[Rfam]
RNA sequence: AACCUUUUUAAAUGCAUUCCAGAGAGUUUGCAAAGAGGGCAAUAACAGAGAAACCGAGCACACGGCCAACAUGACGUGUCCGGUUUAUCUAGGCCUCUUUGCGCAUACUCGCAAAGAGGCUUUUUUAAU
Numbered sequence: 001a002a003c004c005u006u007u008u009u010a011a012a013u014g015c016a017u018u019c020c021a022g023a024g025a026g027u028u029u030g031c032a033a034a035g036a037g038g039g040c041a042a043u044a045a046c047a048g049a050g051a052a053a054c055c056g057a058g059c060a061c062a063c064g065g066c067c068a069a070c071a072u073g074a075c076g077u078g079u080c081c082g083g084u085u086u087a088u089c090u091a092g093g094c095c096u097c098u099u100u101g102c103g104c105a106u107a108c109u110c111g112c113a114a115a116g117a118g119g120c121u122u123u124u125u126u127a128a129u
Stems, first nucleotide, its partner, number of pairs: 003038007014031003019026001051086006058079004091122012